[Rfam]
RNA sequence: AAAGCAUGAAAAGCGCCUGAACUAUUUUCCGACCGGUAGUGAAAAUAGUUGACGAGGUGGGGGUUAUCGAACUUUUUCGGCGGGUACCUCCCGGCUGCACAUCACAGUCGUGAUACUUUUUCUUAAAAACAGUGAGGCGACUUGCUGUACAAAGGAUUAAGUAAGCUGAUG
Numbered sequence: 001a002a003a004g005c006a007u008g009a010a011a012a013g014c015g016c017c018u019g020a021a022c023u024a025u026u027u028u029c030c031g032a033c034c035g036g037u038a039g040u041g042a043a044a045a046u047a048g049u050u051g052a053c054g055a056g057g058u059g060g061g062g063g064u065u066a067u068c069g070a071a072c073u074u075u076u077u078c079g080g081c082g083g084g085u086a087c088c089u090c091c092c093g094g095c096u097g098c099a100c101a102u103c104a105c106a107g108u109c110g111u112g113a114u115a116c117u118u119u120u121u122c123u124u125a126a127a128a129a130c131a132g133u134g135a136g137g138c139g140a141c142u143u144g145c146u147g148u149a150c151a152a153a154g155g156a157u158u159a160a161g162u163a164a165g166c167u168g169a170u171g
Stems, first nucleotide, its partner, number of pairs: 020050008029041001059091005067080004092110006116161003121156002130147007
Shown here is a 171-nucleotide sequence from Lentibacillus sp. CBA3610, a member of the family "glmS glucosamine-6-phosphate activated ribozyme aptamer". Rfam classes the family as a riboswitch. The base pairs follow the family's consensus structure, which is taken from published work. Its family is annotated with catalytic activity and regulation of gene expression in the Gene Ontology. Taxonomically the source falls in Lentibacillus (Bacteria, Bacillati, Caryophanales, Bacillaceae).